[Rfam]
RNA: tRNA
Organism: Vitrella brassicaformis
RNA sequence: GCCCGUAUGGCCAAGCGGUAAGGCGUCGCACUUGUAAUGCGAAGAUCGUGAGUUCGAUCCUCACUGUGGGCU
Numbered sequence: 001g002c003c004c005g006u007a008u009g010g011c012c013a014a015g016c017g018g019u020a021a022g023g024c025g026u027c028g029c030a031c032u033u034g035u036a037a038u039g040c041g042a043a044g045a046u047c048g049u050g051a052g053u054u055c056g057a058u059c060c061u062c063a064c065u066g067u068g069g070g071c072u
Base pairs, nucleotide, nucleotide: 001071002070003069004068005067006066007065010024011023012022026042027041028040029039030038048064049063050062051061052060